[Rfam]
Shown here is a 118-nucleotide RNA sequence, a member of the family "Small nucleolar RNA snoR104". The family's RNA type in Rfam is H/ACA-box small nucleolar RNA. Rfam's curators put it in the seed alignment. Its family is annotated with nucleolus and RNA processing in the Gene Ontology.

RNA sequence: GGGGAGCAUCAAAGAGUUGUGAUGUUAUCUGAUACAAUCUUCCUAAAUAAACACUCUGCAUUUCCUGCUUGCGGAAGCUGAGCUUUGUUCCGCGAGUCUCAUAUCUGCAAAGACACCA
Numbered sequence: 001g002g003g004g005a006g007c008a009u010c011a012a013a014g015a016g017u018u019g020u021g022a023u024g025u026u027a028u029c030u031g032a033u034a035c036a037a038u039c040u041u042c043c044u045a046a047a048u049a050a051a052c053a054c055u056c057u058g059c060a061u062u063u064c065c066u067g068c069u070u071g072c073g074g075a076a077g078c079u080g081a082g083c084u085u086u087g088u089u090c091c092g093c094g095a096g097u098c099u100c101a102u103a104u105c106u107g108c109a110a111a112g113a114c115a116c117c118a
Stems, first nucleotide, its partner, number of pairs: 001030003005026007055110001067097008076088001